[Rfam]
RNA: transfer-messenger RNA
RNA sequence: GGGGCCGAUCGGUUUUGACAGCAGGUGGAAUUAAAAAGUAAGCACGUCGAGCGCUCAUUUACAGCUCGUAAAUCUCAUAAAUGAACUUUUUUUACACGGCGAAGAAAACUACGCUUUAGCUGCUUAAUUCUGAAUUAUAGUAAGAUCAAGCCUUUGUCCUGUUAGACAGGAAAGCUGAAUUCCUUAAAAAAGCCUUGAUUUAUGGCGUUUUGUAAUAAGGAACCGUAAAAUAAAUCUAGGCAGGUUAGCGUUUCGAACAUCUGUCGAAAUUUUAGAAACUAAGCAAAAAGCGGUUGUUUUUGACCAAACUUUUUGACGAAAAUGUAAUCAAAAACUAAACGUGUAGAAAGCUCUUUGAUUGCCUGUUUGGACCAGGGUUCGAUUCCCUGCGGCUCCACUG
Numbered sequence: 001g002g003g004g005c006c007g008a009u010c011g012g013u014u015u016u017g018a019c020a021g022c023a024g025g026u027g028g029a030a031u032u033a034a035a036a037a038g039u040a041a042g043c044a045c046g047u048c049g050a051g052c053g054c055u056c057a058u059u060u061a062c063a064g065c066u067c068g069u070a071a072a073u074c075u076c077a078u079a080a081a082u083g084a085a086c087u088u089u090u091u092u093u094a095c096a097c098g099g100c101g102a103a104g105a106a107a108a109c110u111a112c113g114c115u116u117u118a119g120c121u122g123c124u125u126a127a128u129u130c131u132g133a134a135u136u137a138u139a140g141u142a143a144g145a146u147c148a149a150g151c152c153u154u155u156g157u158c159c160u161g162u163u164a165g166a167c168a169g170g171a172a173a174g175c176u177g178a179a180u181u182c183c184u185u186a187a188a189a190a191a192g193c194c195u196u197g198a199u200u201u202a203u204g205g206c207g208u209u210u211u212g213u214a215a216u217a218a219g220g221a222a223c224c225g226u227a228a229a230a231u232a233a234a235u236c237u238a239g240g241c242a243g244g245u246u247a248g249c250g251u252u253u254c255g256a257a258c259a260u261c262u263g264u265c266g267a268a269a270u271u272u273u274a275g276a277a278a279c280u281a282a283g284c285a286a287a288a289a290g291c292g293g294u295u296g297u298u299u300u301u302g303a304c305c306a307a308a309c310u311u312u313u314u315g316a317c318g319a320a321a322a323u324g325u326a327a328u329c330a331a332a333a334a335c336u337a338a339a340c341g342u343g344u345a346g347a348a349a350g351c352u353c354u355u356u357g358a359u360u361g362c363c364u365g366u367u368u369g370g371a372c373c374a375g376g377g378u379u380c381g382a383u384u385c386c387c388u389g390c391g392g393c394u395c396c397a398c399u400g
Stems, first nucleotide, its partner, number of pairs: 001396007019369002021366007030359006037352003043343005048068005055084005180222006187211004192206003199232001201230001237267001239265007250279005284315007292305003296335004300330001302328001373389005